Plant signal recognition particle RNA: a 306-nucleotide RNA from Sesamum indicum.
Clan: SRP clan.
On this family, see Regalia et al., Nucleic Acids Res 2002: "Prediction of signal recognition particle RNA genes".
RNA sequence: GUUGAGCUCAGUUGCGUGGGCUUGUAACCCAAGUGGGGGCAACAAGGUGGUUGGACAUUGAGCUAGUCUAACUAGUUGGGUCAUAGGUGGCUAAUUAUUGACCUGCCCGUUCCAAGCAGUGAGUUGGGCUAUGUGGUUCAAGUUGAAGGUUUGGACUUCAUGGCUCUUAAAGUGGAGGGUAAUGCGUCAGGCUGGUUUCACAGAGCAGCGAAAACCUCCCGCUCUUUGCAGUGGAAGGAUAACAGGCCGGUGCUCCCUUGGUCCACAAAAACUAGGUGGGCUGGCCCUAAUUGAACAAUCACCUUU
Numbered sequence: 001g002u003u004g005a006g007c008u009c010a011g012u013u014g015c016g017u018g019g020g021c022u023u024g025u026a027a028c029c030c031a032a033g034u035g036g037g038g039g040c041a042a043c044a045a046g047g048u049g050g051u052u053g054g055a056c057a058u059u060g061a062g063c064u065a066g067u068c069u070a071a072c073u074a075g076u077u078g079g080g081u082c083a084u085a086g087g088u089g090g091c092u093a094a095u096u097a098u099u100g101a102c103c104u105g106c107c108c109g110u111u112c113c114a115a116g117c118a119g120u121g122a123g124u125u126g127g128g129c130u131a132u133g134u135g136g137u138u139c140a141a142g143u144u145g146a147a148g149g150u151u152u153g154g155a156c157u158u159c160a161u162g163g164c165u166c167u168u169a170a171a172g173u174g175g176a177g178g179g180u181a182a183u184g185c186g187u188c189a190g191g192c193u194g195g196u197u198u199c200a201c202a203g204a205g206c207a208g209c210g211a212a213a214a215c216c217u218c219c220c221g222c223u224c225u226u227u228g229c230a231g232u233g234g235a236a237g238g239a240u241a242a243c244a245g246g247c248c249g250g251u252g253c254u255c256c257c258u259u260g261g262u263c264c265a266c267a268a269a270a271a272c273u274a275g276g277u278g279g280g281c282u283g284g285c286c287c288u289a290a291u292u293g294a295a296c297a298a299u300c301a302c303c304u305u306u
Stems, first nucleotide, its partner, number of pairs: 001040003004023007028037003044305010056293002058290003062285005068279003072275006078264006086256001089254002092252002098250003102246004107238002110236005116229004121224004126166008135157009167172001174219005183212001185210003192203003